Shown here is a 108-nucleotide RNA sequence from Methylopila jiangsuensis, a member of the family "Guanidine-I riboswitch aptamer". Rfam's curators write: This family represents a conserved RNA structure found upstream of the ykkC and yxkD genes in Bacillus subtilis and related genes in other bacteria. Rfam links the family to the GO term regulation of gene expression.
RNA sequence: GUGCAGAGCGUCUAGGGUUCCGGCCGCAGGUCAUGCGGCGCUGGUCCAAGAGACGCUCUUCCCGCGAGCGCAUGCGGGGAGACACGGCGGGGGAAAAACCCGGGAGGU
Numbered sequence: 001g002u003g004c005a006g007a008g009c010g011u012c013u014a015g016g017g018u019u020c021c022g023g024c025c026g027c028a029g030g031u032c033a034u035g036c037g038g039c040g041c042u043g044g045u046c047c048a049a050g051a052g053a054c055g056c057u058c059u060u061c062c063c064g065c066g067a068g069c070g071c072a073u074g075c076g077g078g079g080a081g082a083c084a085c086g087g088c089g090g091g092g093g094a095a096a097a098a099c100c101c102g103g104g105a106g107g108u
Stems, first nucleotide, its partner, number of pairs: 007057006015047002020044002022041001023039006058081008083103001085106001089101003